[Rfam]
RNA sequence: CUCCAACUUCAGGGCAGAGUGAGACGCAGGAAGCGUCAAUUCUCGACUGGCGGUGAUACUCCACUUAGGGGGAGAUGAGUCCGCGAACCGAAAGGCCGAUUGAGUGUGAAUCUCAAACCAACAGUAUAGUCUGGAUGGAAGAAGUAACGA
Numbered sequence: 001c002u003c004c005a006a007c008u009u010c011a012g013g014g015c016a017g018a019g020u021g022a023g024a025c026g027c028a029g030g031a032a033g034c035g036u037c038a039a040u041u042c043u044c045g046a047c048u049g050g051c052g053g054u055g056a057u058a059c060u061c062c063a064c065u066u067a068g069g070g071g072g073a074g075a076u077g078a079g080u081c082c083g084c085g086a087a088c089c090g091a092a093a094g095g096c097c098g099a100u101u102g103a104g105u106g107u108g109a110a111u112c113u114c115a116a117a118c119c120a121a122c123a124g125u126a127u128a129g130u131c132u133g134g135a136u137g138g139a140a141g142a143a144g145u146a147a148c149g150a
Stems, first nucleotide, its partner, number of pairs: 006145005017044003046130002048120002050084004079118002088095002100116005122133003

Shown here is a 150-nucleotide sequence from Anaerostipes rhamnosivorans, a member of the family "FMN riboswitch aptamer (RFN element)".
A search with the family's covariance model found it, with a score of 81 bits.
Pairs were carried over by alignment from the consensus structure, which is taken from published work.
Gene Ontology term of the family: FMN binding.